[Rfam]
RNA sequence: CGAUCCUACGGGAGCGAUGAACCCUUCCAGUUUUAUCUGGACGCCAUGGAAUGGGGGAGCGAGUGGCGUAACCGACCGUGGAAAAG
Numbered sequence: 001c002g003a004u005c006c007u008a009c010g011g012g013a014g015c016g017a018u019g020a021a022c023c024c025u026u027c028c029a030g031u032u033u034u035a036u037c038u039g040g041a042c043g044c045c046a047u048g049g050a051a052u053g054g055g056g057g058a059g060c061g062a063g064u065g066g067c068g069u070a071a072c073c074g075a076c077c078g079u080g081g082a083a084a085a086g
Stems, first nucleotide, its partner, number of pairs: 001086001004083001006081006014060002022055003026051001027049002039073002041069005
RNA: c-di-GMP-II-GAG riboswitch aptamer
Organism: Longilinea arvoryzae